[Rfam]
RNA sequence: ACUUGAAAAACGCAAACUUGGUGAAAGCUAAGGACGCAAAACUUCCAGUCUAAUGCGUGAGUUGUGACGCGAUGAUAGUGGGGUUACCAAG
Numbered sequence: 001a002c003u004u005g006a007a008a009a010a011c012g013c014a015a016a017c018u019u020g021g022u023g024a025a026a027g028c029u030a031a032g033g034a035c036g037c038a039a040a041a042c043u044u045c046c047a048g049u050c051u052a053a054u055g056c057g058u059g060a061g062u063u064g065u066g067a068c069g070c071g072a073u074g075a076u077a078g079u080g081g082g083g084u085u086a087c088c089a090a091g
Stems, first nucleotide, its partner, number of pairs: 012037002017032006040085004045081003048076003055070004